This 76-nucleotide sequence from Ameiurus melas belongs to the Rfam family "mir-7563 microRNA precursor family".

RNA sequence: ACCGCGUACUUACCUACUAUAUCGUAGGUGAAAUAAAUGUAUCUCGGCUGCUAUAUAGUAGGCAAGUACGUGGUUU
Numbered sequence: 001a002c003c004g005c006g007u008a009c010u011u012a013c014c015u016a017c018u019a020u021a022u023c024g025u026a027g028g029u030g031a032a033a034u035a036a037a038u039g040u041a042u043c044u045c046g047g048c049u050g051c052u053a054u055a056u057a058g059u060a061g062g063c064a065a066g067u068a069c070g071u072g073g074u075u076u
Base pairs, nucleotide, nucleotide: 001074002073003072004071005070006069007068008067009066010065011064013062014061015060017058018057019056020055021054022053024051025050026049027048029046030045031044033042034041035040
The match comes from Rfam's covariance-model search (83 bits). Its family is annotated with miRNA-mediated post-transcriptional gene silencing and RISC complex in the Gene Ontology. The base pairs follow the family's consensus structure, which was predicted with RNAalifold.